This 138-nucleotide RNA sequence from Daphnia galeata belongs to the Rfam family "U11 spliceosomal RNA". The source organism's lineage runs through Eukaryota, Metazoa, Bilateria, Protostomia and Daphnia. A search with the family's covariance model found it, with a score of 84 bits.

RNA sequence: AAAAAGGGUGCUUACUAUUAAUGGUACGCUCAUUUAUUUCUCUAUUAAAAGGGAUGAUUUGAGUGGGGUAUGGCCAUCAAGACAUACCCAGCACGUAAUUUUUGUACCCGGGACAGUUGAUGCACCAUCGACGUCCCC
Numbered sequence: 001a002a003a004a005a006g007g008g009u010g011c012u013u014a015c016u017a018u019u020a021a022u023g024g025u026a027c028g029c030u031c032a033u034u035u036a037u038u039u040c041u042c043u044a045u046u047a048a049a050a051g052g053g054a055u056g057a058u059u060u061g062a063g064u065g066g067g068g069u070a071u072g073g074c075c076a077u078c079a080a081g082a083c084a085u086a087c088c089c090a091g092c093a094c095g096u097a098a099u100u101u102u103u104g105u106a107c108c109c110g111g112g113a114c115a116g117u118u119g120a121u122g123c124a125c126c127a128u129c130g131a132c133g134u135c136c137c138c
Stems, first nucleotide, its partner, number of pairs: 008094005013026005027065006035057001038054004066089007111136004116132007